[Rfam]
This 97-nucleotide RNA sequence from Leptobrachium leishanense belongs to the Rfam family "Vault RNA". The literature on the family includes a 2009 paper in Mol Biol Evol by Stadler et al., "Evolution of Vault RNAs". It is annotated as a non-coding RNA gene. The match comes from Rfam's covariance-model search (60 bits).
RNA sequence: AGGUCAGCCAUAGCUCAGCGGUUACUUCUGGCAACCUUCAUAUGCAUGAAACAUCCUUACCCAGGAUCAAUUCCCGCGGGCGCUACCUGACCCUUUA
Numbered sequence: 001a002g003g004u005c006a007g008c009c010a011u012a013g014c015u016c017a018g019c020g021g022u023u024a025c026u027u028c029u030g031g032c033a034a035c036c037u038u039c040a041u042a043u044g045c046a047u048g049a050a051a052c053a054u055c056c057u058u059a060c061c062c063a064g065g066a067u068c069a070a071u072u073c074c075c076g077c078g079g080g081c082g083c084u085a086c087c088u089g090a091c092c093c094u095u096u097a
Stems, first nucleotide, its partner, number of pairs: 002092006013081004018077004027070001030067001